[Rfam]
RNA sequence: AAAGCAGGUUACAAGUACAGUUCUUCAUUUUGUGGAAGUAUUGCCACUUCAUUGCUGAAAGAGAAGCUAUGCUGAUGACUUCUGUUUUACCUUUAUGAAUGUAAAAAUGACAGCUUGACAAAGACAGCA
Numbered sequence: 001a002a003a004g005c006a007g008g009u010u011a012c013a014a015g016u017a018c019a020g021u022u023c024u025u026c027a028u029u030u031u032g033u034g035g036a037a038g039u040a041u042u043g044c045c046a047c048u049u050c051a052u053u054g055c056u057g058a059a060a061g062a063g064a065a066g067c068u069a070u071g072c073u074g075a076u077g078a079c080u081u082c083u084g085u086u087u088u089a090c091c092u093u094u095a096u097g098a099a100u101g102u103a104a105a106a107a108u109g110a111c112a113g114c115u116u117g118a119c120a121a122a123g124a125c126a127g128c129a
Stems, first nucleotide, its partner, number of pairs: 003056005018043004023038004067123002070120002073117003083107001085106006092099002
Overview:
A member of the RNA family "Small nucleolar RNA SNORA69" from Cricetulus griseus, 129 nucleotides long. U69 is a member of the H/ACA class of small nucleolar RNAs (snoRNAs) which act as guides in the the modification of uridines to pseudouridines. It is annotated as an H/ACA-box small nucleolar RNA. The family's consensus secondary structure was predicted with PFOLD. Taxonomically the source falls in Cricetulus (Eukaryota, Metazoa, Teleostomi, Mammalia).